[Rfam]
Shown here is a 136-nucleotide RNA sequence from Lachnospiraceae bacterium YSD2013, a member of the family "Ribosomal protein L10 leader". Its family is annotated with regulation of gene expression in the Gene Ontology. Taxonomically the source falls in Lachnospiraceae (Bacteria, Bacillati, Bacillota, Lachnospirales). For this family Rfam cites "Specific interactions of the L10(L12)4 ribosomal protein complex with mRNA, rRNA, and L11" (Iben and Draper, Biochemistry, 2008). Rfam classes the family as a cis-regulatory leader.

RNA sequence: GUGUUAAUUUAUACAAGGCCGAAGACAGUAGGUGAAGGAGUAACCUUCGUAAGAUAACCGCCUACCGAGGAACCAGUGAGUAUUGAUUAUUUACGAGUCCCUCUGUCUUGUGGCAGAGGGAUUUAUUAUAUGAAUC
Numbered sequence: 001g002u003g004u005u006a007a008u009u010u011a012u013a014c015a016a017g018g019c020c021g022a023a024g025a026c027a028g029u030a031g032g033u034g035a036a037g038g039a040g041u042a043a044c045c046u047u048c049g050u051a052a053g054a055u056a057a058c059c060g061c062c063u064a065c066c067g068a069g070g071a072a073c074c075a076g077u078g079a080g081u082a083u084u085g086a087u088u089a090u091u092u093a094c095g096a097g098u099c100c101c102u103c104u105g106u107c108u109u110g111u112g113g114c115a116g117a118g119g120g121a122u123u124u125a126u127u128a129u130a131u132g133a134a135u136c
Stems, first nucleotide, its partner, number of pairs: 028065006034048005098121010